About this RNA:
Rfam assigns this 116-nucleotide RNA from Pelosinus fermentans to the family "Group II catalytic intron D1-D4-2". Taxonomically the source falls in Pelosinus fermentans (Bacteria, Bacillati, Negativicutes, Selenomonadales). Gene Ontology term of the family: Group II intron splicing.

RNA sequence: GAAGGAAGGUCCUUCGGUGGGGACUAUACAGGUAGAUCCACCAAACAACCCUAUGCUGCUGUGGUCAAAAGCCAUGGUAGUGAGCAACUAGGGAAAAGGCUGUCAAAACAGUCAUG
Numbered sequence: 001g002a003a004g005g006a007a008g009g010u011c012c013u014u015c016g017g018u019g020g021g022g023a024c025u026a027u028a029c030a031g032g033u034a035g036a037u038c039c040a041c042c043a044a045a046c047a048a049c050c051c052u053a054u055g056c057u058g059c060u061g062u063g064g065u066c067a068a069a070a071g072c073c074a075u076g077g078u079a080g081u082g083a084g085c086a087a088c089u090a091g092g093g094a095a096a097a098g099g100c101u102g103u104c105a106a107a108a109c110a111g112u113c114a115u116g
Base pairs, nucleotide, nucleotide: 001015002014003013004012005011016042017041018040019039020038021037024035025034026033027032046116047115049093050092051091052090053089054087055081056080058078059077060076062074063073064072065071098113099112100111101110102109103108